[Rfam]
RNA: c-di-GMP-I-GGC riboswitch aptamer
RNA sequence: CUCGACAAAGCCAAACCCUUCGCAAGGAGGGGACGGAAAGCGGUGGGUCUUCAGUAAGAUGGCCGAGCUGCCGAAG
Number, nucleotide and partner (000 for none) at each position: 001c076002u000003c073004g072005a000006c000007a000008a000009a000010g000011c036012c035013a000014a000015a000016c031017c030018c029019u028020u027021c026022g000023c000024a000025a000026g021027g020028a019029g018030g017031g016032g000033a000034c062035g012036g011037a000038a000039a069040g068041c067042g000043g000044u065045g064046g063047g060048u059049c058050u000051u000052c000053a000054g000055u000056a000057a000058g049059a048060u047061g000062g034063c046064c045065g044066a000067g041068c040069u039070g000071c000072c004073g003074a000075a000076g001